[Rfam]
RNA sequence: GCGCCUCUGGAAAGUGGUGGCUGCGGGCCACCCGCCCAAGGUGAAAGGCGACCGGAUCCUCGAUCCGGACGCCGAAGCUCUCAGGCGCCGCGACAGAGGGGGAGGG
Numbered sequence: 001g002c003g004c005c006u007c008u009g010g011a012a013a014g015u016g017g018u019g020g021c022u023g024c025g026g027g028c029c030a031c032c033c034g035c036c037c038a039a040g041g042u043g044a045a046a047g048g049c050g051a052c053c054g055g056a057u058c059c060u061c062g063a064u065c066c067g068g069a070c071g072c073c074g075a076a077g078c079u080c081u082c083a084g085g086c087g088c089c090g091c092g093a094c095a096g097a098g099g100g101g102g103a104g105g106g
Stems, first nucleotide, its partner, number of pairs: 002101001004099006016032004034086003038081001041080001043078001047073004
RNA: Glycine riboswitch aptamer